[Rfam]
RNA sequence: CUCUUAUCCAGACAGGUGGAGGGAACGGCCCGAUGAAACCUGGGCAACCGGCCGACCGGUGCGGUGCCAAUUCCGACGGCGUGAGCCGGGAGAUGAGAG
Number, nucleotide and partner (000 for none) at each position: 001c099002u098003c097004u096005u095006a094007u093008c092009c000010a000011g000012a000013c042014a041015g040016g039017u038018g000019g000020a000021g031022g030023g029024a000025a000026c075027g074028g073029c023030c022031c021032g000033a000034u000035g000036a000037a000038a017039c016040c015041u014042g013043g068044g067045c066046a065047a000048c064049c063050g000051g060052c059053c058054g000055a000056c000057c000058g053059g052060u051061g000062c000063g049064g048065u046066g045067c044068c043069a000070a000071u000072u091073c028074c027075g026076a000077c088078g087079g086080c085081g000082u000083g000084a000085g080086c079087c078088g077089g000090g000091a072092g008093a007094u006095g005096a004097g003098a002099g001
RNA: SAM riboswitch aptamer (S box leader)
Organism: Sulfobacillus acidophilus